[Rfam]
RNA sequence: GUGCAAAUGAUGGAAAUAAUUUUCCGACUGAGCUAAGUGAUGUUUUCAAAGGAACCACUGAUGCAC
Numbered sequence: 001g002u003g004c005a006a007a008u009g010a011u012g013g014a015a016a017u018a019a020u021u022u023u024c025c026g027a028c029u030g031a032g033c034u035a036a037g038u039g040a041u042g043u044u045u046u047c048a049a050a051g052g053a054a055c056c057a058c059u060g061a062u063g064c065a066c
Stems, first nucleotide, its partner, number of pairs: 001066005
Small nucleolar RNA SNORD42: a 66-nucleotide RNA sequence from Pantherophis guttatus. The family's RNA type in Rfam is C/D-box small nucleolar RNA. The base pairs follow the family's consensus structure, which was predicted with PFOLD. Its family is annotated with nucleolus and RNA processing in the Gene Ontology. snoRNA U42 is found in intron 3 of the ribosomal protein L23a (RPL23a) gene in humans and is also present in mice. On this family, see Huttenhofer et al., EMBO J 2001: "RNomics: an experimental approach that identifies 201 candidates for novel, small, non-messenger RNAs in mouse". NCBI's taxonomy places the organism under Eukaryota, Deuterostomia, Chordata, Tetrapoda, Pantherophis.